Rfam assigns this 419-nucleotide RNA sequence from Erythrobacter sp. NAP1 to the family "Bacterial RNase P class A". From the family's description: Ribonuclease P (RNase P) is a ubiquitous endoribonuclease, found in archaea, bacteria and eukarya as well as chloroplasts and mitochondria.
RNA sequence: CAGGGAGCCGAGGCAACCGCGUGGUUUCGACCGCGAGGAAAGUCCGGGCUCCACGAAGCAAGGGUGGCGGGUAACGCCCGCCGGGUGAGGCUUUCGGGCUGAGCUCAGGGAAAGUGCCACAGAGAGUAUACCGCCGAUGGAGGUCGAACCUCACAGGCAAGGGUGAAAGGGUGCGGCAAGAGCGCACCGGGGGUCUGGCAACAGGCUCCGCAUGGCAAACCCCACCCGGAGCAAGGCCAAAUAGGGGCCUCGCGCCCGACCAGAUACGGUCAGGGCAGGAGCGCUUCGCUCCGAGAGGCCCGGGUUGGCUGCUUGAGCCGCGUGGCAACAUGCGGCCCAGAUGAAUGGUUGCCGCCGCGGCGCUGGUCGAAAGAUACCGGUCGCGGAGACAGAACCCGGCUUAUGACGCUCCCUGAUGC
Numbered sequence: 001c002a003g004g005g006a007g008c009c010g011a012g013g014c015a016a017c018c019g020c021g022u023g024g025u026u027u028c029g030a031c032c033g034c035g036a037g038g039a040a041a042g043u044c045c046g047g048g049c050u051c052c053a054c055g056a057a058g059c060a061a062g063g064g065u066g067g068c069g070g071g072u073a074a075c076g077c078c079c080g081c082c083g084g085g086u087g088a089g090g091c092u093u094u095c096g097g098g099c100u101g102a103g104c105u106c107a108g109g110g111a112a113a114g115u116g117c118c119a120c121a122g123a124g125a126g127u128a129u130a131c132c133g134c135c136g137a138u139g140g141a142g143g144u145c146g147a148a149c150c151u152c153a154c155a156g157g158c159a160a161g162g163g164u165g166a167a168a169g170g171g172u173g174c175g176g177c178a179a180g181a182g183c184g185c186a187c188c189g190g191g192g193g194u195c196u197g198g199c200a201a202c203a204g205g206c207u208c209c210g211c212a213u214g215g216c217a218a219a220c221c222c223c224a225c226c227c228g229g230a231g232c233a234a235g236g237c238c239a240a241a242u243a244g245g246g247g248c249c250u251c252g253c254g255c256c257c258g259a260c261c262a263g264a265u266a267c268g269g270u271c272a273g274g275g276c277a278g279g280a281g282c283g284c285u286u287c288g289c290u291c292c293g294a295g296a297g298g299c300c301c302g303g304g305u306u307g308g309c310u311g312c313u314u315g316a317g318c319c320g321c322g323u324g325g326c327a328a329c330a331u332g333c334g335g336c337c338c339a340g341a342u343g344a345a346u347g348g349u350u351g352c353c354g355c356c357g358c359g360g361c362g363c364u365g366g367u368c369g370a371a372a373g374a375u376a377c378c379g380g381u382c383g384c385g386g387a388g389a390c391a392g393a394a395c396c397c398g399g400c401u402u403a404u405g406a407c408g409c410u411c412c413c414u415g416a417u418g419c
Stems, first nucleotide, its partner, number of pairs: 001415008011404001012353007020035006040402003044399005049231004058286001062227005067081005082108001083106004109222002114220002116216003131162002133158003138155002140152004170188006189211001190209008235310004245301006278292005317336008
The organism belongs to Erythrobacter, within Bacteria.
Rfam links the family to the GO terms dimeric ribonuclease P complex, tRNA processing and ribonuclease P activity.
It is annotated as a ribozyme.